Rfam assigns this 85-nucleotide RNA from Nannospalax galili to the family "Small nucleolar RNA SNORD87". The literature on the family includes a 2002 paper in Gene by Gogolevskaya et al., "U87 RNA, a novel C/D box small nucleolar RNA from mammalian cells".
RNA sequence: GGUGGCACAAUGAUGACCUAAAGUUUUGCCGUUUACCCAGUUGAGGACUUCUUUGAAGAAGUAAUCUUAAGACUGAGGUGCCAGU
Numbered sequence: 001g002g003u004g005g006c007a008c009a010a011u012g013a014u015g016a017c018c019u020a021a022a023g024u025u026u027u028g029c030c031g032u033u034u035a036c037c038c039a040g041u042u043g044a045g046g047a048c049u050u051c052u053u054u055g056a057a058g059a060a061g062u063a064a065u066c067u068u069a070a071g072a073c074u075g076a077g078g079u080g081c082c083a084g085u
Stems, first nucleotide, its partner, number of pairs: 001085001003083005

Taxonomically the source falls in Nannospalax (Eukaryota, Craniata, Tetrapoda, Theria).